[Rfam]
RNA sequence: CUACCGUCAUCGAGAGGUGACGGGACGGGUGGACAGAAGUCAGCCGAGGGCAUAGUGUGCGCUGGGCAGCGUACAAGUC
Numbered sequence: 001c002u003a004c005c006g007u008c009a010u011c012g013a014g015a016g017g018u019g020a021c022g023g024g025a026c027g028g029g030u031g032g033a034c035a036g037a038a039g040u041c042a043g044c045c046g047a048g049g050g051c052a053u054a055g056u057g058u059g060c061g062c063u064g065g066g067c068a069g070c071g072u073a074c075a076a077g078u079c
Stems, first nucleotide, its partner, number of pairs: 001027001004023008040047002049079003057074006
RNA: Group II catalytic intron D1-D4-1
Organism: Candidatus Nitromaritima sp. SCGC AAA799-A02